The family of this 123-nucleotide RNA from Dinoroseobacter shibae is "TPP riboswitch aptamer (THI element)".

RNA sequence: CUUUCUCACCCGGGGGGUCCCGACAAGGGGCUGAGAAACUGAUGGUGCGGCAACGCAUAGCGCAGUGACCCGACGAACCUGAUCCAGUUCAUACUGGCGUAGGGAUGGUGUUCGGCUGUGCGG
Numbered sequence: 001c002u003u004u005c006u007c008a009c010c011c012g013g014g015g016g017g018u019c020c021c022g023a024c025a026a027g028g029g030g031c032u033g034a035g036a037a038a039c040u041g042a043u044g045g046u047g048c049g050g051c052a053a054c055g056c057a058u059a060g061c062g063c064a065g066u067g068a069c070c071c072g073a074c075g076a077a078c079c080u081g082a083u084c085c086a087g088u089u090c091a092u093a094c095u096g097g098c099g100u101a102g103g104g105a106u107g108g109u110g111u112u113c114g115g116c117u118g119u120g121c122g123g
Stems, first nucleotide, its partner, number of pairs: 007110004011072004017031005038066004078103004084097004

The base pairs follow the family's consensus structure, which is taken from published work.
The source organism's lineage runs through Bacteria, Pseudomonadati, Rhodobacterales, Roseobacteraceae and Dinoroseobacter shibae.
Vitamin B(1) in its active form thiamin pyrophosphate (TPP) is an essential coenzyme that is synthesised by coupling of pyrimidine and thiazole moieties in bacteria.